[Rfam]
RNA sequence: UCCUUCUCCAAAUAUGCAGAUUUGUGUCCAGCGUCCUUCCCUUUGCCAGCGCUGCUUGCAGCAAUGGUGUAAGGUGGUAGUUGCAUGUUGAGGCAGUUCGAUCGUCUAUGGAGCCAUCUACCUCUUCUGGUAUUAUUAUGAUGUAAAUCAUCCGAUCGACAAAUCUCAGAGAAAUCGGUCCUUACGAAACCUGAGUCGCUUUAACCGGCUGAUUCGGUGGACAAGUGUACUGAAGACGUCAGAUUCCAAAUCUGUUUGCCUAGGCUGUUAGCCUUUGAGGUUGCGGACUAACCCUCUCGUCUACAUUU
Dot-bracket structure: .................((((((((((((((.(((((.(((((((((.(.((((....))))..).).)))))).)).))..).)).))).))).......(.(((..(.(.(.(((....................))).).).).......))).)))))))))...........((.........((.((((((((........)).))))))))..........))....((((..((........(((((..(((..((((...)))).....))).)))))......))..)))).......
This 308-nucleotide RNA sequence from Rutstroemia sp. NJR-2017a WRK4 belongs to the Rfam family "A. fumigatus sRNA Afu_309". Rfam classes the family as a small RNA. Rfam 15.1 lists 663 matches to the family in 646 species.